[Rfam]
Description: small nucleolar RNA snoR127: a 188-nucleotide RNA from Carpinus fangiana. It scores 60 bits against the family's covariance model. NCBI's taxonomy places the organism under Eukaryota, Tracheophyta, Gunneridae, Betulaceae, Carpinus. A reference for the family is Chen and Wu (2009), "Mining small RNA sequencing data: a new approach to identify small nucleolar RNAs in Arabidopsis", Nucleic Acids Res.

RNA sequence: CUGGAAUGAUGUAGCUUAGCCAAAUCAGACACUGAUGUGCUCCAUAAGGGAUUUUCUUCAAAGCUUGUACUUUGUUGUAGAGGCACAAUGUGUCUCUUACACACACUUGUUCAAGCUUUAGAUGAUAUGCCUUCUGUAGAAGUGCAUCGUUGUGACGUCAACAUAGAGUUUGGUUGUUCCUGACCAGA
Numbered sequence: 001c002u003g004g005a006a007u008g009a010u011g012u013a014g015c016u017u018a019g020c021c022a023a024a025u026c027a028g029a030c031a032c033u034g035a036u037g038u039g040c041u042c043c044a045u046a047a048g049g050g051a052u053u054u055u056c057u058u059c060a061a062a063g064c065u066u067g068u069a070c071u072u073u074g075u076u077g078u079a080g081a082g083g084c085a086c087a088a089u090g091u092g093u094c095u096c097u098u099a100c101a102c103a104c105a106c107u108u109g110u111u112c113a114a115g116c117u118u119u120a121g122a123u124g125a126u127a128u129g130c131c132u133u134c135u136g137u138a139g140a141a142g143u144g145c146a147u148c149g150u151u152g153u154g155a156c157g158u159c160a161a162c163a164u165a166g167a168g169u170u171u172g173g174u175u176g177u178u179c180c181u182g183a184c185c186a187g188a
Stems, first nucleotide, its partner, number of pairs: 001187004